[Rfam]
RNA: U5 spliceosomal RNA
Organism: Malus domestica
RNA sequence: AAGCCAUGCGUUGAUCACAAAGCAAACUAUUCUUUCGCCUUUUACUAAAGAAUAUUGUGUGCUUGUCAUUUUAAAUGGGCUUAAUCGGAUAAAUGGUCCUUGUGGUGACAAGGU
Numbered sequence: 001a002a003g004c005c006a007u008g009c010g011u012u013g014a015u016c017a018c019a020a021a022g023c024a025a026a027c028u029a030u031u032c033u034u035u036c037g038c039c040u041u042u043u044a045c046u047a048a049a050g051a052a053u054a055u056u057g058u059g060u061g062c063u064u065g066u067c068a069u070u071u072u073a074a075a076u077g078g079g080c081u082u083a084a085u086c087g088g089a090u091a092a093a094u095g096g097u098c099c100u101u102g103u104g105g106u107g108a109c110a111a112g113g114u
Base pairs, nucleotide, nucleotide: 004078005077006076010067012065013064014063016061017060018059019058028054029053030052031051032050033049034048035047098113099112100111101110102109103108